[Rfam]
RNA sequence: CUUGAAGACCGCUAGGGUUCCGGGCGCUGCUCAUACAUAUAUGUAGAGCGCGCCGUCUGGUCCGAGAGCAGUCGGCCACGAUCGUGUGGCUCCACGGAGGGACAAAAGCCCGGGAGAC
Numbered sequence: 001c002u003u004g005a006a007g008a009c010c011g012c013u014a015g016g017g018u019u020c021c022g023g024g025c026g027c028u029g030c031u032c033a034u035a036c037a038u039a040u041a042u043g044u045a046g047a048g049c050g051c052g053c054c055g056u057c058u059g060g061u062c063c064g065a066g067a068g069c070a071g072u073c074g075g076c077c078a079c080g081a082u083c084g085u086g087u088g089g090c091u092c093c094a095c096g097g098a099g100g101g102a103c104a105a106a107a108g109c110c111c112g113g114g115a116g117a118c
Stems, first nucleotide, its partner, number of pairs: 007073003011069002015063002020060002022057001023054005074091007093113001095116001099111003
The record is a 118-nucleotide RNA from Hydrogenophaga sp. A37, which matches "Guanidine-I riboswitch aptamer" in Rfam. Lineage of the source: Bacteria > Pseudomonadati > Pseudomonadota > Comamonadaceae > Hydrogenophaga. The pairing is the family consensus, mapped onto this sequence. About the family: This family represents a conserved RNA structure found upstream of the ykkC and yxkD genes in Bacillus subtilis and related genes in other bacteria.